[Rfam]
Rfam assigns this 135-nucleotide RNA from Jaculus jaculus to the family "Small nucleolar RNA SNORA14". Rfam classes the family as an H/ACA-box small nucleolar RNA. Pairs were carried over by alignment from the consensus structure, which was predicted with RNAfold. Its family is annotated with nucleolus and RNA processing in the Gene Ontology. Taxonomically the source falls in Jaculus (Eukaryota, Vertebrata, Dipnotetrapodomorpha, Amniota). The match comes from Rfam's covariance-model search (141 bits).
RNA sequence: UUGCAUUCUUAAACCCUCUUGGCGGCUUCCUCCAACGUGCUUCCAAGAUAUGAGUGAAUGCUACAGAAAUUGUGGGGGAGUCCAAAGGGCUGUGCUUCUUCUGUGGCUCAGUCUUAUUUCAUACCUGCGACAUAU
Numbered sequence: 001u002u003g004c005a006u007u008c009u010u011a012a013a014c015c016c017u018c019u020u021g022g023c024g025g026c027u028u029c030c031u032c033c034a035a036c037g038u039g040c041u042u043c044c045a046a047g048a049u050a051u052g053a054g055u056g057a058a059u060g061c062u063a064c065a066g067a068a069a070u071u072g073u074g075g076g077g078g079a080g081u082c083c084a085a086a087g088g089g090c091u092g093u094g095c096u097u098c099u100u101c102u103g104u105g106g107c108u109c110a111g112u113c114u115u116a117u118u119u120c121a122u123a124c125c126u127g128c129g130a131c132a133u134a135u
Stems, first nucleotide, its partner, number of pairs: 003061004008054004017048006024041003065135001067133001070130007086115007094107002098103001
Record summary:
ACA14 is a member of the H/ACA class of snoRNA that guide the sites of modification of uridines to pseudouridines.